Rfam assigns this 419-nucleotide sequence from Congregibacter litoralis to the family "Bacterial RNase P class A".
RNA sequence: GAAGUUGGCCAGACGAUCGCGGUAUUCCCUGUUUCAGGGGGUACGGAGGAAAGUCCGGGCUCCAUAGGGCAGGGUGCCAGGUAACGCCUGGGGGGUGUGAGCCCACGGAAAGUGCAGCAGAAAGGAAACCGCCUUUCUCCAAGACCGCUCAGGGCUGUUAAUGCAAUGGCUCGGACGUCUUGGCAGGACCUCUCAACGAUGUCCUGUGAAGGGUAAGGGUGAAAAGGUGCGGUAAGAGCGCACCGCGCGGCUGGUAACAGGCGCGGCGAUGGUAAACCCCACCUGGAGCAAGACCAAAUAGGAAUCCACCAGCUGCGGCCCGCAGUGGAUUCGGGUAGGUCGCUAGAGGCGGGCGGCGACGCUCGUCCCAGAUGAAUGAUCGUUCUCGACAGAACCCGGCUUAUCGGCCAACUUCUUUA
Numbered sequence: 001g002a003a004g005u006u007g008g009c010c011a012g013a014c015g016a017u018c019g020c021g022g023u024a025u026u027c028c029c030u031g032u033u034u035c036a037g038g039g040g041g042u043a044c045g046g047a048g049g050a051a052a053g054u055c056c057g058g059g060c061u062c063c064a065u066a067g068g069g070c071a072g073g074g075u076g077c078c079a080g081g082u083a084a085c086g087c088c089u090g091g092g093g094g095g096u097g098u099g100a101g102c103c104c105a106c107g108g109a110a111a112g113u114g115c116a117g118c119a120g121a122a123a124g125g126a127a128a129c130c131g132c133c134u135u136u137c138u139c140c141a142a143g144a145c146c147g148c149u150c151a152g153g154g155c156u157g158u159u160a161a162u163g164c165a166a167u168g169g170c171u172c173g174g175a176c177g178u179c180u181u182g183g184c185a186g187g188a189c190c191u192c193u194c195a196a197c198g199a200u201g202u203c204c205u206g207u208g209a210a211g212g213g214u215a216a217g218g219g220u221g222a223a224a225a226g227g228u229g230c231g232g233u234a235a236g237a238g239c240g241c242a243c244c245g246c247g248c249g250g251c252u253g254g255u256a257a258c259a260g261g262c263g264c265g266g267c268g269a270u271g272g273u274a275a276a277c278c279c280c281a282c283c284u285g286g287a288g289c290a291a292g293a294c295c296a297a298a299u300a301g302g303a304a305u306c307c308a309c310c311a312g313c314u315g316c317g318g319c320c321c322g323c324a325g326u327g328g329a330u331u332c333g334g335g336u337a338g339g340u341c342g343c344u345a346g347a348g349g350c351g352g353g354c355g356g357c358g359a360c361g362c363u364c365g366u367c368c369c370a371g372a373u374g375a376a377u378g379a380u381c382g383u384u385c386u387c388g389a390c391a392g393a394a395c396c397c398g399g400c401u402u403a404u405c406g407g408c409c410a411a412c413u414u415c416u417u418u419a
Stems, first nucleotide, its partner, number of pairs: 001415010011404001012384007020046001022044007051402003055399005060288004067321004072284005077091005092106001093104004107279002112277002114273002129218002131214007139206001226244006245267001246265004251260003292341004302332006312326005348367008